[Rfam]
RNA sequence: UGCCCUAUAUACAUCAGAAUUUAUAUUGUAGGAUCAUCAAGCAAUAAAGCCCACCAUGCGAGAUCAUAUGCUUAAGUAACGGCGAGUGAAGCGGGAAGAGCUCAAAUUUAAAAUCUGUAAGGUUCAACCUUGCCGAAUUGUAGUUUGAAGAAGUGUUUUCCGCGGCGGCUGCAGUACAAAUCCUUUGGAACAGGGUAUCAGAGAGGGUGAGAAUCCCGUCUUUGACUGCAGACUAGUUGCACUGUGAUACACUUUCUAAGAGUCGAGUUGUUUGGGAAUGCAGCUCAAAAUGGGUGGUAAAUUUCAUCUAAAGCUAAAUAUUGGCAAGAGACCGAUAGCGAACAAGUACCGUGAGGGAAAGAUGAAAAGAACUUUGAAAAGAGAGUUAAAUAGUACGUGAAAUUGUUAAAAGGGAAA
Number, nucleotide and partner (000 for none) at each position: 001u000002g000003c000004c032005c031006u030007a029008u028009a000010u000011a000012c000013a000014u000015c000016a000017g000018a000019a000020u000021u000022u000023a000024u000025a000026u000027u000028g008029u007030a006031g005032g004033a000034u000035c000036a000037u000038c000039a000040a000041g000042c000043a000044a000045u000046a000047a000048a000049g000050c000051c000052c000053a000054c000055c000056a000057u000058g000059c000060g000061a000062g000063a000064u000065c000066a000067u000068a000069u096070g000071c094072u093073u000074a000075a000076g000077u000078a000079a087080c086081g000082g000083c000084g000085a000086g080087u079088g000089a000090a000091g000092c000093g072094g071095g000096a069097a000098g000099a315100g314101c313102u312103c000104a000105a145106a144107u143108u142109u000110a000111a139112a138113a000114u136115c135116u000117g133118u132119a131120a130121g000122g000123u000124u000125c000126a000127a000128c000129c000130u120131u119132g118133c117134c000135g115136a114137a000138u112139u111140g000141u000142a108143g107144u106145u105146u000147g000148a000149a000150g256151a255152a253153g252154u251155g250156u000157u249158u000159u247160c246161c000162g240163c239164g238165g237166c236167g234168g233169c000170u230171g229172c228173a227174g226175u225176a000177c000178a000179a000180a196181u000182c195183c194184u193185u192186u000187g000188g000189a000190a000191c000192a185193g184194g183195g182196u180197a000198u000199c203200a000201g000202a000203g199204a000205g000206g216207g215208u000209g000210a000211g000212a000213a000214u000215c207216c206217c000218g000219u000220c000221u000222u000223u000224g000225a175226c174227u173228g172229c171230a170231g000232a000233c168234u167235a000236g166237u165238u164239g163240c162241a000242c000243u000244g000245u000246g160247a159248u000249a157250c155251a154252c153253u152254u000255u151256c150257u000258a000259a000260g000261a000262g000263u000264c000265g286266a285267g284268u283269u282270g281271u280272u000273u000274g000275g000276g000277a000278a000279u000280g271281c270282a269283g268284c267285u266286c265287a000288a000289a000290a000291u000292g309293g308294g307295u306296g305297g000298u000299a000300a000301a000302u000303u000304u000305c296306a295307u294308c293309u292310a000311a000312a102313g101314c100315u099316a000317a000318a000319u000320a000321u000322u000323g000324g000325c000326a000327a000328g000329a000330g000331a000332c000333c000334g000335a000336u000337a000338g000339c000340g000341a000342a000343c000344a000345a000346g000347u000348a000349c356350c355351g000352u000353g000354a000355g350356g349357g000358a000359a000360a000361g000362a000363u000364g000365a000366a000367a000368a000369g000370a000371a000372c383373u382374u381375u380376g000377a000378a000379a000380a375381g374382a373383g372384a000385g000386u000387u000388a000389a000390a000391u000392a000393g000394u000395a000396c000397g000398u000399g000400a000401a000402a000403u000404u000405g000406u000407u000408a000409a000410a000411a000412g000413g000414g000415a000416a000417a000
RNA: Eukaryotic large subunit ribosomal RNA, nucleotides 1 to 417
Organism: Basidiobolus meristosporus